[Rfam]
RNA sequence: CUGCAUUUAAUUAAGCCAACUGUGCUCUUUCCCCUUGGGGCCUCAUGUGCCAUGGCCACAAACAGUGGCCCCCUUGGUAGUGUAUGCAGCCUGUUGUUUGCUGGGGUUGCCCUAAGGGACCUUGGAGACAGCC
Numbered sequence: 001c002u003g004c005a006u007u008u009a010a011u012u013a014a015g016c017c018a019a020c021u022g023u024g025c026u027c028u029u030u031c032c033c034c035u036u037g038g039g040g041c042c043u044c045a046u047g048u049g050c051c052a053u054g055g056c057c058a059c060a061a062a063c064a065g066u067g068g069c070c071c072c073c074u075u076g077g078u079a080g081u082g083u084a085u086g087c088a089g090c091c092u093g094u095u096g097u098u099u100g101c102u103g104g105g106g107u108u109g110c111c112c113u114a115a116g117g118g119a120c121c122u123u124g125g126a127g128a129c130a131g132c133c
Stems, first nucleotide, its partner, number of pairs: 003050003019046001021045002024041004076121003087109006
Record summary
The family of this 133-nucleotide sequence from Suricata suricatta is "Small nucleolar RNA SNORA70". The family has 43 seed sequences and 5,173 matches in Rfam 15.1. Rfam describes the family as follows. snoRNA U70 seems to be exclusive to mammals and is a member of the H/ACA class of snoRNA which contain H (ANANNA) and ACA box motifs. The source organism's lineage runs through Eukaryota, Bilateria, Tetrapoda, Feliformia and Suricata. Rfam classes the family as an H/ACA-box small nucleolar RNA. Pairs were carried over by alignment from the consensus structure, which was predicted with PFOLD.